[Rfam]
Overview: A member of the RNA family "c-di-AMP riboswitch aptamer (ydaO/yuaA leader)" from Sphaerisporangium melleum, 138 nucleotides long. From the family's description: This family represents a conserved RNA structure found upstream of the ydaO and yuaA genes in Bacillus subtilis and related genes in other bacteria. The ydaO/yuaA element is thought to act as a genetic 'off' switch for the ydaO and yuaA genes in its native state. The match comes from Rfam's covariance-model search (85 bits).
RNA sequence: ACGGCCGGUACGCCUAAUCCCAGGUGCCCCGCCUGGGAGCCGGGGACCCAUGGUUCCUCUGGGGUGAAUCCACGCGAGUGGUAGGGCUGCUCCGGCCCGAACCCGUCAGCUAACCCGGCCGGCAGAUGGAGAGGAGUG
Numbered sequence: 001a002c003g004g005c006c007g008g009u010a011c012g013c014c015u016a017a018u019c020c021c022a023g024g025u026g027c028c029c030c031g032c033c034u035g036g037g038a039g040c041c042g043g044g045g046a047c048c049c050a051u052g053g054u055u056c057c058u059c060u061g062g063g064g065u066g067a068a069u070c071c072a073c074g075c076g077a078g079u080g081g082u083a084g085g086g087c088u089g090c091u092c093c094g095g096c097c098c099g100a101a102c103c104c105g106u107c108a109g110c111u112a113a114c115c116c117g118g119c120c121g122g123c124a125g126a127u128g129g130a131g132a133g134g135a136g137u138g
Stems, first nucleotide, its partner, number of pairs: 012123003018038009039119006049061002062104003070081004084098004
For this family Rfam cites "New RNA motifs suggest an expanded scope for riboswitches in bacterial genetic control" (Barrick et al., Proc Natl Acad Sci U S A, 2004). Its family is annotated with regulation of gene expression and cyclic-di-AMP binding in the Gene Ontology.